[Rfam]
RNA: U5 spliceosomal RNA
Organism: Clytia hemisphaerica
RNA sequence: CAGCUCUGGGUUUUCUUCAGCUCACGCACAUAUCUUUCGCCUUUUACUAAAGAUACCGUGGAGAAGACCAAAUUGAUGAGUCUCAUCAACAUUUUCGAUAGUCCCACUUCGGUGGGCAU
Numbered sequence: 001c002a003g004c005u006c007u008g009g010g011u012u013u014u015c016u017u018c019a020g021c022u023c024a025c026g027c028a029c030a031u032a033u034c035u036u037u038c039g040c041c042u043u044u045u046a047c048u049a050a051a052g053a054u055a056c057c058g059u060g061g062a063g064a065a066g067a068c069c070a071a072a073u074u075g076a077u078g079a080g081u082c083u084c085a086u087c088a089a090c091a092u093u094u095u096c097g098a099u100a101g102u103c104c105c106a107c108u109u110c111g112g113u114g115g116g117c118a119u
Base pairs, nucleotide, nucleotide: 003081004080005079006078009069010068011067012066013065014064015063016062017061018060019059031055032054033053034052035051036050037049098119101117102116103115104114